[Rfam]
RNA sequence: AUCGCUUCUCGGCCUUUUGGCUAAGAUCAAAGUGUAGUAUCUGUUCUUAUCAGCUUAAUAUCUGAUACGAUGUCCAUUGGACAUCUUCGAUAUUAAACUGAUCUUUGUACCUGGGCGAAGUGUAAGGGGCUUGCUCCACCUUUGCCAUGGGUUGGCCCGGUAUUGCAGUACCUCCGGGAUCGGCCCACUCCCC
Numbered sequence: 001a002u003c004g005c006u007u008c009u010c011g012g013c014c015u016u017u018u019g020g021c022u023a024a025g026a027u028c029a030a031a032g033u034g035u036a037g038u039a040u041c042u043g044u045u046c047u048u049a050u051c052a053g054c055u056u057a058a059u060a061u062c063u064g065a066u067a068c069g070a071u072g073u074c075c076a077u078u079g080g081a082c083a084u085c086u087u088c089g090a091u092a093u094u095a096a097a098c099u100g101a102u103c104u105u106u107g108u109a110c111c112u113g114g115g116c117g118a119a120g121u122g123u124a125a126g127g128g129g130c131u132u133g134c135u136c137c138a139c140c141u142u143u144g145c146c147a148u149g150g151g152u153u154g155g156c157c158c159g160g161u162a163u164u165g166c167a168g169u170a171c172c173u174c175c176g177g178g179a180u181c182g183g184c185c186c187a188c189u190c191c192c193c
Base pairs, nucleotide, nucleotide: 007026008025009024011022012021013020014019048067049066050065051064052063053062069085070084071083072082073081074080075079114146115145116144117143118142119141120140126137127136128135129134149186150185151184152183153182154181156178157177158176159175160174

The family of this 193-nucleotide sequence from Owenia fusiformis is "U2 spliceosomal RNA". The match comes from Rfam's covariance-model search (185 bits). The source organism's lineage runs through Eukaryota, Protostomia, Sedentaria, Sabellida and Owenia. Its Rfam clan is "U2 clan". By type it is a spliceosomal small nuclear RNA.